Rfam assigns this 75-nucleotide RNA sequence from Crocodylus porosus to the family "Mammalian CPEB3 ribozyme".
RNA sequence: UCACAAGUUCCAGGUUACAGUAGAAACACUCCUGGUGCAGCCCUGUCAGAUUCCAAUUAAUCUGCAAAUUCUGCU
Numbered sequence: 001u002c003a004c005a006a007g008u009u010c011c012a013g014g015u016u017a018c019a020g021u022a023g024a025a026a027c028a029c030u031c032c033u034g035g036u037g038c039a040g041c042c043c044u045g046u047c048a049g050a051u052u053c054c055a056a057u058u059a060a061u062c063u064g065c066a067a068a069u070u071c072u073g074c075u
Stems, first nucleotide, its partner, number of pairs: 007043001013042004019075007027037002047064006